[Rfam]
RNA sequence: GUGUUUUUCAUAGUAUUAGAUUUUAGGUUAAUAUUAGAUUGAAGGUUGUCGUGAGACAGCCUUUUUCUUUUGU
Numbered sequence: 001g002u003g004u005u006u007u008u009c010a011u012a013g014u015a016u017u018a019g020a021u022u023u024u025a026g027g028u029u030a031a032u033a034u035u036a037g038a039u040u041g042a043a044g045g046u047u048g049u050c051g052u053g054a055g056a057c058a059g060c061c062u063u064u065u066u067c068u069u070u071u072g073u
Base pairs, nucleotide, nucleotide: 044061045060046059047058048057049056050055